[Rfam]
RNA sequence: GAAAACGUGAGGAGUUGAGAUUCACUAAGGAGUCGAAACUAGGAAAGACUUCCUUGUUGAAUCUCAAAGA
Number, nucleotide and partner (000 for none) at each position: 001g000002a000003a000004a000005a000006c000007g000008u000009g000010a000011g000012g000013a000014g000015u066016u000017g065018a064019g063020a062021u061022u000023c000024a058025c000026u000027a000028a000029g053030g052031a051032g049033u048034c047035g000036a000037a000038a000039c000040u000041a000042g000043g000044a000045a000046a000047g034048a033049c032050u000051u031052c030053c029054u000055u000056g000057u000058u024059g000060a000061a021062u020063c019064u018065c017066a015067a000068a000069g000070a000

A member of the RNA family "Cyano-1 RNA" from Prochlorococcus marinus, 70 nucleotides long. The source organism's lineage runs through Bacteria, Cyanobacteriota, Cyanophyceae, Synechococcales and Prochlorococcus marinus. Pairs were carried over by alignment from the consensus structure, which is taken from published work.